[Rfam]
RNA: SAM riboswitch aptamer (S box leader)
RNA sequence: UUUUUAUACCGAGGCGCUGAGAGAUAGGCUCUGCGACGCGCCGGCAACCUCCGCUUCUGCGGAACGGUGCCAACCGAACGGCGGCCAAACCAUGGUCGCUCCUAUAAAAG
Number, nucleotide and partner (000 for none) at each position: 001u110002u109003u108004u107005u106006a105007u104008a103009c000010c000011g000012a000013g042014g041015c040016g039017c038018u000019g000020a000021g031022a030023g029024a000025u080026a000027g000028g000029c023030u022031c021032u000033g000034c000035g000036a000037c000038g017039c016040g015041c014042c013043g071044g070045c069046a068047a000048c067049c066050u063051c062052c061053g060054c000055u000056u000057c000058u000059g000060c053061g052062g051063a050064a000065c000066g049067g048068u046069g045070c044071c043072a000073a000074c000075c000076g102077a000078a000079c000080g025081g099082c098083g097084g096085c095086c094087a000088a000089a000090c000091c000092a000093u000094g086095g085096u084097c083098g082099c081100u000101c000102c076103u008104a007105u006106a005107a004108a003109a002110g001